A member of the RNA family "rpsB sRNA" from Acetobacter sp. CAG:977, 138 nucleotides long.
RNA sequence: CACACGCAGGCGGCGGCGGUGCGCGGUUUUUAAAUGCGGGGAGUUUCUCGGGUUUAUGAACUUGCGUUUCGCUCCGGUGUCAAAGGCGACUUUGGCUCAAACGGCCUGCGGAGGCUUAACCGGAAAACAAGAGGAUUA
Numbered sequence: 001c002a003c004a005c006g007c008a009g010g011c012g013g014c015g016g017c018g019g020u021g022c023g024c025g026g027u028u029u030u031u032a033a034a035u036g037c038g039g040g041g042a043g044u045u046u047c048u049c050g051g052g053u054u055u056a057u058g059a060a061c062u063u064g065c066g067u068u069u070c071g072c073u074c075c076g077g078u079g080u081c082a083a084a085g086g087c088g089a090c091u092u093u094g095g096c097u098c099a100a101a102c103g104g105c106c107u108g109c110g111g112a113g114g115c116u117u118a119a120c121c122g123g124a125a126a127a128c129a130a131g132a133g134g135a136u137u138a
Base pairs, nucleotide, nucleotide: 001113003111005110006109007108008107009106010105011104016072017071018070019069079096080095081094082093083092084091085090
The literature on the family includes a 2009 paper in BMC Genomics by Meyer et al., "Identification of candidate structured RNAs in the marine organism 'Candidatus Pelagibacter ubique'". The match comes from Rfam's covariance-model search (43 bits).